RNA sequence: UACGUUCAUCUCAACACAUUUGAGACGCAAGUAGGGCUGAGCCUGAAGGAACGGGAA
Numbered sequence: 001u002a003c004g005u006u007c008a009u010c011u012c013a014a015c016a017c018a019u020u021u022g023a024g025a026c027g028c029a030a031g032u033a034g035g036g037c038u039g040a041g042c043c044u045g046a047a048g049g050a051a052c053g054g055g056a057a
Base pairs, nucleotide, nucleotide: 003053004052005051006050007049009025010024011023012022013021028054034044035043036042